[Rfam]
mir-1002 microRNA precursor family: an 89-nucleotide sequence from Drosophila melanogaster. The base pairs follow the family's consensus structure, which was predicted with RNAalifold. Taxonomically the source falls in Sophophora (Eukaryota, Panarthropoda, Mandibulata, Allotriocarida).
RNA sequence: UAGAAAUUAUAUAUUUAAGUAGUGGAUACAAAGGGCGAUUUGAUAUAAAAGUGUCGCAUUGUAUGACCUACUUAACUAGCUGAUUUUGU
Dot-bracket structure: ..(((((((..((.((((((((...((((((..(..(................)..).))))))...)))))))).))..)))))))..